[Rfam]
RNA sequence: GGGGCGGAUCUAGGAUUCGACAAGAUUCAUGAAACCCAAGGUGCAUGCCCAGGGGCGGUUGGCCUGGUAAAAAGCCGCAAAACUAUAAUUGCAAACGACGAAACGUUCGCACUAGCCGCUUAAGGCUAGCCAUCGCCUCAUAAACUUUCCUGUUGUUUAGAGGAACGAUGGUCACCCCAAAUAGGAUAGCGAGGGAAGCACGCUUAAGGCUGAACCGCGAAAUAGUAUUAAGCUCACCAUGACGAAGCCUGUCGGUUGGCGUCUAAUUGGUUAAAUAAAUAAUCGACUAAGCAUGUAGUACCGAGGACGUAGGCUUUUUGGACGGGGGUUCGAUUCCCCCCCGCUCCACCA
Numbered sequence: 001g002g003g004g005c006g007g008a009u010c011u012a013g014g015a016u017u018c019g020a021c022a023a024g025a026u027u028c029a030u031g032a033a034a035c036c037c038a039a040g041g042u043g044c045a046u047g048c049c050c051a052g053g054g055g056c057g058g059u060u061g062g063c064c065u066g067g068u069a070a071a072a073a074g075c076c077g078c079a080a081a082a083c084u085a086u087a088a089u090u091g092c093a094a095a096c097g098a099c100g101a102a103a104c105g106u107u108c109g110c111a112c113u114a115g116c117c118g119c120u121u122a123a124g125g126c127u128a129g130c131c132a133u134c135g136c137c138u139c140a141u142a143a144a145c146u147u148u149c150c151u152g153u154u155g156u157u158u159a160g161a162g163g164a165a166c167g168a169u170g171g172u173c174a175c176c177c178c179a180a181a182u183a184g185g186a187u188a189g190c191g192a193g194g195g196a197a198g199c200a201c202g203c204u205u206a207a208g209g210c211u212g213a214a215c216c217g218c219g220a221a222a223u224a225g226u227a228u229u230a231a232g233c234u235c236a237c238c239a240u241g242a243c244g245a246a247g248c249c250u251g252u253c254g255g256u257u258g259g260c261g262u263c264u265a266a267u268u269g270g271u272u273a274a275a276u277a278a279a280u281a282a283u284c285g286a287c288u289a290a291g292c293a294u295g296u297a298g299u300a301c302c303g304a305g306g307a308c309g310u311a312g313g314c315u316u317u318u319u320g321g322a323c324g325g326g327g328g329u330u331c332g333a334u335u336c337c338c339c340c341c342c343g344c345u346c347c348a349c350c351a
Stems, first nucleotide, its partner, number of pairs: 001347007021320005028313001030311001036306002040302003044295005049067005055078006112129006130171006136163004142158004148186007189218003202234001204232002207229001236271004244263002247260003251287004256281001324340005
A member of the RNA family "transfer-messenger RNA" from Colwellia chukchiensis, 351 nucleotides long. By type it is a non-coding RNA gene. Rfam links the family to the GO term RNA catabolic process.